[Rfam]
RNA sequence: AAAUAAAAGCAGAGGCUCCCGCUUCUCGCCUUAGUUGACGAUUUAGUCGCUGGGCUAGAUAUUAUUCCCUUACUAAUUUACUUAGUGAGAUUGAAUAGGCGCGGGUUCUUACAAGAACUCGUUUUUUUGUUGCCUG
Numbered sequence: 001a002a003a004u005a006a007a008a009g010c011a012g013a014g015g016c017u018c019c020c021g022c023u024u025c026u027c028g029c030c031u032u033a034g035u036u037g038a039c040g041a042u043u044u045a046g047u048c049g050c051u052g053g054g055c056u057a058g059a060u061a062u063u064a065u066u067c068c069c070u071u072a073c074u075a076a077u078u079u080a081c082u083u084a085g086u087g088a089g090a091u092u093g094a095a096u097a098g099g100c101g102c103g104g105g106u107u108c109u110u111a112c113a114a115g116a117a118c119u120c121g122u123u124u125u126u127u128u129g130u131u132g133c134c135u136g
Stems, first nucleotide, its partner, number of pairs: 011026006028055003036049004101122009
Ribosomal protein L20 leader: a 136-nucleotide RNA from Enterococcus sp. PFB1-1.
Rfam describes the family as follows. This family is a putative r-protein leader autoregulatory structure found in B. subtilis and other low-GC Gram-positive bacteria. It is located in the 5' untranslated regions of mRNAs encoding initiation factor 3 followed by ribosomal proteins L35 and L20 (infC-rpmI-rplT).
The source organism's lineage runs through Bacteria, Bacillota, Lactobacillales, Enterococcaceae and Enterococcus.
A reference for the family is Zengel and Lindahl (1994), "Diverse mechanisms for regulating ribosomal protein synthesis in Escherichia coli", Prog Nucleic Acid Res Mol Biol.